[Rfam]
RNA sequence: UGACUCCAGUGUCCAAAGUCUGAUCCCGCGCCGUGCUUGCACGAGCGCGGUGGGAAGACUUUGCGACACGCCCCCUUCAUGAGCAUGAAGCGGACGAUAGGGCGCGGGAAUGCGAAUGAAGGGAAGCAUGGCGGGAGCCGGUGAACGGCGGAGCCAUGCGGAGUCA
Numbered sequence: 001u002g003a004c005u006c007c008a009g010u011g012u013c014c015a016a017a018g019u020c021u022g023a024u025c026c027c028g029c030g031c032c033g034u035g036c037u038u039g040c041a042c043g044a045g046c047g048c049g050g051u052g053g054g055a056a057g058a059c060u061u062u063g064c065g066a067c068a069c070g071c072c073c074c075c076u077u078c079a080u081g082a083g084c085a086u087g088a089a090g091c092g093g094a095c096g097a098u099a100g101g102g103c104g105c106g107g108g109a110a111u112g113c114g115a116a117u118g119a120a121g122g123g124a125a126g127c128a129u130g131g132c133g134g135g136a137g138c139c140g141g142u143g144a145a146c147g148g149c150g151g152a153g154c155c156a157u158g159c160g161g162a163g164u165c166a
Stems, first nucleotide, its partner, number of pairs: 001166007010068004016061006024053002026050005032043004073123008083113004090105003095100001126159007137149004
A member of the RNA family "Clostridiales-1 RNA" from Oribacterium sp. oral taxon 078, 166 nucleotides long. By type it is a small RNA. Pairs were carried over by alignment from the consensus structure, which is taken from published work. It scores 111 bits against the family's covariance model.